Small nucleolar RNA Z279/snoR105/snoR108: a 99-nucleotide RNA from Ipomoea nil. About the family: This family includes the plant snoRNAs known as Z279, snoR105 and snoR108. The base pairs follow the family's consensus structure, which was predicted with PFOLD. Taxonomically the source falls in Ipomoea (Eukaryota, Streptophyta, Mesangiospermae, Convolvulaceae). It scores 86 bits against the family's covariance model. Rfam classes the family as a C/D-box small nucleolar RNA.
RNA sequence: GGGAUAUGAGGAGUGGUCAAUGCUCGCAUUUGAUGUGAGAUGAGUGCCCACCUCGCCUGUUACGACAAUGAGGCACUCCCAUUUUUACCAUCUGAUCCC
Numbered sequence: 001g002g003g004a005u006a007u008g009a010g011g012a013g014u015g016g017u018c019a020a021u022g023c024u025c026g027c028a029u030u031u032g033a034u035g036u037g038a039g040a041u042g043a044g045u046g047c048c049c050a051c052c053u054c055g056c057c058u059g060u061u062a063c064g065a066c067a068a069u070g071a072g073g074c075a076c077u078c079c080c081a082u083u084u085u086u087a088c089c090a091u092c093u094g095a096u097c098c099c
Stems, first nucleotide, its partner, number of pairs: 001099004014090004023039005042078007058070003